[Rfam]
RNA sequence: UCUUUCCUUGUCUUGGGGUGAGAGAGCCACUCAAUGAACGUAUAGUGAGAGUAGCCCUGCUAACACCAGAACAACACUAACGCAUCACCUGGACUCACGUCCGGAUCAUGGUGCAAUUUUUGGAACC
Numbered sequence: 001u002c003u004u005u006c007c008u009u010g011u012c013u014u015g016g017g018g019u020g021a022g023a024g025a026g027c028c029a030c031u032c033a034a035u036g037a038a039c040g041u042a043u044a045g046u047g048a049g050a051g052u053a054g055c056c057c058u059g060c061u062a063a064c065a066c067c068a069g070a071a072c073a074a075c076a077c078u079a080a081c082g083c084a085u086c087a088c089c090u091g092g093a094c095u096c097a098c099g100u101c102c103g104g105a106u107c108a109u110g111g112u113g114c115a116a117u118u119u120u121u122g123g124a125a126c127c
Base pairs, nucleotide, nucleotide: 006018007017008016009015020060023058024057026055027054029052030051031050032049038046039045082114083113084112085111086110087109089104090103091102092101093100094099
U4atac minor spliceosomal RNA: a 127-nucleotide sequence from Larimichthys crocea. Clan: U4 clan. The source organism's lineage runs through Eukaryota, Craniata, Vertebrata, Eurypterygia and Larimichthys. It is annotated as a spliceosomal small nuclear RNA. Its family is annotated with mRNA 5'-splice site recognition, spliceosomal tri-snRNP complex assembly and U4atac snRNP in the Gene Ontology.